This 100-nucleotide RNA sequence from Apolygus lucorum belongs to the Rfam family "mir-36 microRNA precursor family". It scores 55 bits against the family's covariance model. The organism belongs to Apolygus, within Eukaryota. Rfam links the family to the GO terms miRNA-mediated post-transcriptional gene silencing and RISC complex. The family's consensus secondary structure was predicted with WAR.
[Rfam]
RNA sequence: UUUUUUCUAUUGCUAGAAUCUAUUGCUAACUUCACCCCGGUUAUAAUAUAGGUAAUAUAUUAUAACCGGGGUGAAGUUAGCAAUAGAUUAUAUUAUAGUU
Numbered sequence: 001u002u003u004u005u006u007c008u009a010u011u012g013c014u015a016g017a018a019u020c021u022a023u024u025g026c027u028a029a030c031u032u033c034a035c036c037c038c039g040g041u042u043a044u045a046a047u048a049u050a051g052g053u054a055a056u057a058u059a060u061u062a063u064a065a066c067c068g069g070g071g072u073g074a075a076g077u078u079a080g081c082a083a084u085a086g087a088u089u090a091u092a093u094u095a096u097a098g099u100u
Base pairs, nucleotide, nucleotide: 017089018088019087020086021085022084024082025081026080027079028078029077030076031075032074033073034072035071036070037069038068040066041065042064043063044062045061